The record is a 111-nucleotide RNA from Paenibacillus antarcticus, which matches "epsC RNA" in Rfam. It is annotated as a cis-regulatory element. Pairs were carried over by alignment from the consensus structure, which is taken from published work. Lineage of the source: Bacteria > Bacillati > Bacillota > Caryophanales > Paenibacillus.

RNA sequence: AGGUAAUGCCUACUAUACCUCUAUCAAUGUAGGUACUCGGUCAUACUGUGGGUCCCCGGACCUUAGAUGUGAAUCAUCAAGGGUGUGGAGUGAGGAUGGGUUGAAUGCCCA
Numbered sequence: 001a002g003g004u005a006a007u008g009c010c011u012a013c014u015a016u017a018c019c020u021c022u023a024u025c026a027a028u029g030u031a032g033g034u035a036c037u038c039g040g041u042c043a044u045a046c047u048g049u050g051g052g053u054c055c056c057c058g059g060a061c062c063u064u065a066g067a068u069g070u071g072a073a074u075c076a077u078c079a080a081g082g083g084u085g086u087g088g089a090g091u092g093a094g095g096a097u098g099g100g101u102u103g104a105a106u107g108c109c110c111a
Stems, first nucleotide, its partner, number of pairs: 001020004007035007036094004041088007050063005066078004097111005